[Rfam]
RNA: SAM riboswitch aptamer (S box leader)
Organism: Alkalicoccus urumqiensis
RNA sequence: UUCUUAUCAAGAGAGGUGGAGGGACUGGCCCGAUGAAACCCGGCAACCAUCAGGAUAUUCCUGGAAGGUGCCAAUUCCUGCGGAGCAUGGCUUCGGCAGAUGAGGA
Numbered sequence: 001u002u003c004u005u006a007u008c009a010a011g012a013g014a015g016g017u018g019g020a021g022g023g024a025c026u027g028g029c030c031c032g033a034u035g036a037a038a039c040c041c042g043g044c045a046a047c048c049a050u051c052a053g054g055a056u057a058u059u060c061c062u063g064g065a066a067g068g069u070g071c072c073a074a075u076u077c078c079u080g081c082g083g084a085g086c087a088u089g090g091c092u093u094c095g096g097c098a099g100a101u102g103a104g105g106a
Stems, first nucleotide, its partner, number of pairs: 001106008013041001015040003021031003025080001027078002042072004047068002050064004076098001081095006